[Rfam]
RNA sequence: UAAGCCCUGCUGCUUCACGAAGCCUUAAGUUCCACUUGGGGUACGUUUCAUUCUUGUGAAACAUAGUGACAGCGGGGUUAC
Number, nucleotide and partner (000 for none) at each position: 001u000002a000003a079004g078005c077006c076007c075008u074009g073010c072011u071012g070013c000014u069015u000016c068017a067018c066019g000020a000021a000022g042023c041024c040025u039026u038027a037028a036029g035030u034031u000032c000033c000034a030035c029036u028037u027038g026039g025040g024041g023042u022043a000044c000045g000046u000047u000048u000049c000050a000051u000052u000053c000054u000055u000056g000057u000058g000059a000060a000061a000062c000063a000064u000065a000066g018067u017068g016069a014070c012071a011072g010073c009074g008075g007076g006077g005078u004079u003080a000081c000
This 81-nucleotide RNA belongs to the Rfam family "DUF3800-VIII RNA". The family's consensus secondary structure is taken from published work. Bacteroidetes, Cyanobacteria, Firmicutes, Planctomycetes (1 example), Proteobacteria, Tenericutes (1 example). By type it is a small RNA. It is one of the family's seed sequences.